[Rfam]
RNA sequence: CCAACGGCCCUCUUUAGGGCCACAAAUGUUCACUAAUCCAUCUUUU
Numbered sequence: 001c002c003a004a005c006g007g008c009c010c011u012c013u014u015u016a017g018g019g020c021c022a023c024a025a026a027u028g029u030u031c032a033c034u035a036a037u038c039c040a041u042c043u044u045u046u
Base pairs, nucleotide, nucleotide: 006021007020008019009018010017011016
RNA: Histone 3' UTR stem-loop
Organism: Caenorhabditis nigoni